A member of the RNA family "Selenocysteine transfer RNA" from Desulfobulbus propionicus, 95 nucleotides long. The literature on the family includes a 2000 paper in FEBS Lett by Mizutani and Goto, "Eukaryotic selenocysteine tRNA has the 9/4 secondary structure".

RNA sequence: UGACUGGUUGAGUUGGCUGGCGCCGGCCGCGGGCUUCAACCCCGUCGGGCCGCCUGUGCAAGGGCGGCCGUUUGGUUCGAUUCCAAAACCAGUCU
Number, nucleotide and partner (000 for none) at each position: 001u000002g094003a093004c092005u091006g090007g089008u088009u087010g000011a000012g027013u026014u025015g024016g023017c022018u000019g000020g000021c000022g017023c016024c015025g014026g013027c012028c000029g045030c044031g043032g042033g041034c000035u000036u000037c000038a000039a000040c000041c033042c032043c031044g030045u029046c000047g000048g069049g068050c067051c066052g065053c064054c063055u000056g000057u000058g000059c000060a000061a000062g000063g054064g053065c052066g051067g050068c049069c048070g000071u000072u086073u085074g084075g083076u000077u000078c000079g000080a000081u000082u000083c075084c074085a073086a072087a009088a008089c007090c006091a005092g004093u003094c002095u000
Lineage of the source: Bacteria > Desulfobulbia > Desulfobulbales > Desulfobulbaceae > Desulfobulbus propionicus.